RNA sequence: AUGGUAUCUUCAAACUUAGAUAGUCCAUCUUAGCCAUCUUUAGCUCCCGGUUUUUUUGGACUAUCCAAACAACAAAAUGCUUC
Numbered sequence: 001a002u003g004g005u006a007u008c009u010u011c012a013a014a015c016u017u018a019g020a021u022a023g024u025c026c027a028u029c030u031u032a033g034c035c036a037u038c039u040u041u042a043g044c045u046c047c048c049g050g051u052u053u054u055u056u057u058g059g060a061c062u063a064u065c066c067a068a069a070c071a072a073c074a075a076a077a078u079g080c081u082u083c
Stems, first nucleotide, its partner, number of pairs: 019065009032052004

The record is an 83-nucleotide sequence from Candidatus Pelagibacter communis, which matches "rhtB sRNA" in Rfam. It is one of the family's seed sequences. Pairs were carried over by alignment from the consensus structure, which is taken from published work. A reference for the family is Meyer et al. (2009), "Identification of candidate structured RNAs in the marine organism 'Candidatus Pelagibacter ubique'", BMC Genomics. The organism belongs to Candidatus Pelagibacter communis, within Bacteria.